[Rfam]
RNA sequence: GGUUCUUGCUACUAUUGCGCCCCAGGCUCGUCUGGAGUUCCGACCUUUCGAAAGAAAGUGUUGAACAACUAUAAUUUUUGGAAACGCUCUGCCGGGGUUAUCCGGUGGGGCAGAAA
Numbered sequence: 001g002g003u004u005c006u007u008g009c010u011a012c013u014a015u016u017g018c019g020c021c022c023c024a025g026g027c028u029c030g031u032c033u034g035g036a037g038u039u040c041c042g043a044c045c046u047u048u049c050g051a052a053a054g055a056a057a058g059u060g061u062u063g064a065a066c067a068a069c070u071a072u073a074a075u076u077u078u079u080g081g082a083a084a085c086g087c088u089c090u091g092c093c094g095g096g097g098u099u100a101u102c103c104g105g106u107g108g109g110g111c112a113g114a115a116a
Stems, first nucleotide, its partner, number of pairs: 008038001009035002014031002019027002041063004045058005088114006094106001096103002
The record is a 116-nucleotide sequence from Caenorhabditis brenneri, which matches "SL2 RNA" in Rfam. The match comes from Rfam's covariance-model search (68 bits). Its family is annotated with mRNA trans splicing, via spliceosome in the Gene Ontology. Rfam describes the family as follows. This family represents SL2 RNA. SL2 RNA is involved in trans splicing in lower eukaryotes. Trans-splicing is a form of RNA processing. The acquisition of a spliced leader from a SL RNA is a intra-molecular reaction which precisely joins exons derived from separately transcribed RNAs. A reference for the family is Evans and Blumenthal (2000), "trans splicing of polycistronic Caenorhabditis elegans pre-mRNAs: analysis of the SL2 RNA", Mol Cell Biol.